[Rfam]
RNA sequence: ACCUUAUCAAGAGAGGCGGAGGGACAGGCCCUAUGAAGCCCAGCAACCACUUCCAAUAUUUGGGGGACGGUGCUAAAUCCUACUUAACGGAAACGUUAGAGAGAUGAGGU
Numbered sequence: 001a002c003c004u005u006a007u008c009a010a011g012a013g014a015g016g017c018g019g020a021g022g023g024a025c026a027g028g029c030c031c032u033a034u035g036a037a038g039c040c041c042a043g044c045a046a047c048c049a050c051u052u053c054c055a056a057u058a059u060u061u062g063g064g065g066g067a068c069g070g071u072g073c074u075a076a077a078u079c080c081u082a083c084u085u086a087a088c089g090g091a092a093a094c095g096u097u098a099g100a101g102a103g104a105u106g107a108g109g110u
Base pairs, nucleotide, nucleotide: 001110002109003108004107005106006105007104008103013041015040016039017038021031022030023029026081027080028079042074043073044072045071047070048069050066051065052064053063078102083099084098086096
RNA: SAM riboswitch aptamer (S box leader)